[Rfam]
RNA sequence: UAGGGUCUUCAGGGUAGGGUGAAAUUCCCAAUCGGCGGUAAAUGGCUGCAAAGUCAAAGCCCGCGACUCCUUGUUGAAGAACGAAGCGAAGCUAGUUCUCCAUAUGGGACUGAUUUGGUGCAAAUCCAAAGCCGACGGUAUAGUCCGGAUGGAAGAAGAUCGCA
Numbered sequence: 001u002a003g004g005g006u007c008u009u010c011a012g013g014g015u016a017g018g019g020u021g022a023a024a025u026u027c028c029c030a031a032u033c034g035g036c037g038g039u040a041a042a043u044g045g046c047u048g049c050a051a052a053g054u055c056a057a058a059g060c061c062c063g064c065g066a067c068u069c070c071u072u073g074u075u076g077a078a079g080a081a082c083g084a085a086g087c088g089a090a091g092c093u094a095g096u097u098c099u100c101c102a103u104a105u106g107g108g109a110c111u112g113a114u115u116u117g118g119u120g121c122a123a124a125u126c127c128a129a130a131g132c133c134g135a136c137g138g139u140a141u142a143g144u145c146c147g148g149a150u151g152g153a154a155g156a157a158g159a160u161c162g163c164a
Stems, first nucleotide, its partner, number of pairs: 004161007017029003031144002033134002035064004059132002068109004114130005136147003

A member of the RNA family "FMN riboswitch aptamer (RFN element)" from Paenibacillus albiflavus, 164 nucleotides long. Taxonomically the source falls in Paenibacillus (Bacteria, Bacillati, Caryophanales, Paenibacillaceae). A search with the family's covariance model found it, with a score of 113 bits. For this family Rfam cites "Coenzyme recognition and gene regulation by a flavin mononucleotide riboswitch" (Serganov et al., Nature, 2009).